[Rfam]
RNA: DUF3800-VIII RNA
RNA sequence: GAUGUCCUCUUCACUCGAAGGCUUGCGUUUAUACGCAGGGUAUUCAUGUAGGGUGUUGGGGAUAUC
Number, nucleotide and partner (000 for none) at each position: 001g066002a065003u064004g063005u062006c061007c060008u059009c058010u000011u000012c055013a054014c053015u052016c051017g000018a000019a000020g041021g000022c039023u038024u037025g036026c035027g034028u033029u000030u000031a000032u000033a028034c027035g026036c025037a024038g023039g022040g000041u020042a000043u000044u000045c000046a000047u000048g000049u000050a000051g016052g015053g014054u013055g012056u000057u000058g009059g008060g007061g006062a005063u004064a003065u002066c001